[Rfam]
SAM riboswitch aptamer (S box leader): a 140-nucleotide RNA. On this family, see Huang et al., Nucleic Acids Res 2016: "A critical base pair in k-turns determines the conformational class adopted, and correlates with biological function". The match comes from Rfam's covariance-model search (73 bits). The family's consensus secondary structure is taken from published work.
RNA sequence: CUCUUAUCCUGAGCUGGUGGAGGGACAGGCCCAAUGAAACCCAGCAACCUGCAGUAUGAAAAGAUGAACCACUUUAAAAGGUCCUUUUCAAAUGCGAAGGUGCUAAUCUGACGCAAGGCUAAUGCCUUGAACGAUAAGAG
Numbered sequence: 001c002u003c004u005u006a007u008c009c010u011g012a013g014c015u016g017g018u019g020g021a022g023g024g025a026c027a028g029g030c031c032c033a034a035u036g037a038a039a040c041c042c043a044g045c046a047a048c049c050u051g052c053a054g055u056a057u058g059a060a061a062a063g064a065u066g067a068a069c070c071a072c073u074u075u076a077a078a079a080g081g082u083c084c085u086u087u088u089c090a091a092a093u094g095c096g097a098a099g100g101u102g103c104u105a106a107u108c109u110g111a112c113g114c115a116a117g118g119c120u121a122a123u124g125c126c127u128u129g130a131a132c133g134a135u136a137a138g139a140g
Base pairs, nucleotide, nucleotide: 001140002139003138004137005136006135007134008133013042016041017040018039022032023031024030026113029109043104044103045102046101048100049099050096051095052094053093114129115128116127117126118125119124